[Rfam]
RNA sequence: AUGGAUGUGAUGAAUUUUUCCCCACAUGAUUCGACGCUGAAAUAACUAAGCGCUCAUUUUUUUUUCUCUCAUUGCAGAGAAAAUCCAAGCCAAAGUUCUGAUCCAU
Numbered sequence: 001a002u003g004g005a006u007g008u009g010a011u012g013a014a015u016u017u018u019u020c021c022c023c024a025c026a027u028g029a030u031u032c033g034a035c036g037c038u039g040a041a042a043u044a045a046c047u048a049a050g051c052g053c054u055c056a057u058u059u060u061u062u063u064u065u066c067u068c069u070c071a072u073u074g075c076a077g078a079g080a081a082a083a084u085c086c087a088a089g090c091c092a093a094a095g096u097u098c099u100g101a102u103c104c105a106u
Base pairs, nucleotide, nucleotide: 001106002105003104004103005102
Dot-bracket structure: (((((................................................................................................)))))